Rfam assigns this 57-nucleotide sequence to the family "S4-Clostridia ribosomal protein leader".
[Rfam]
RNA sequence: GAAAGGCCGCUGUCGUCUAUAUGCGGCUGGAUGCAUCAUACCGGCAUCCCAAUUAAG
Numbered sequence: 001g002a003a004a005g006g007c008c009g010c011u012g013u014c015g016u017c018u019a020u021a022u023g024c025g026g027c028u029g030g031a032u033g034c035a036u037c038a039u040a041c042c043g044g045c046a047u048c049c050c051a052a053u054u055a056a057g
Stems, first nucleotide, its partner, number of pairs: 005028006029049006

For this family Rfam cites "Discovery of 20 novel ribosomal leader candidates in bacteria and archaea" (Eckert and Weinberg, BMC Microbiol, 2020). Rfam classes the family as a cis-regulatory leader.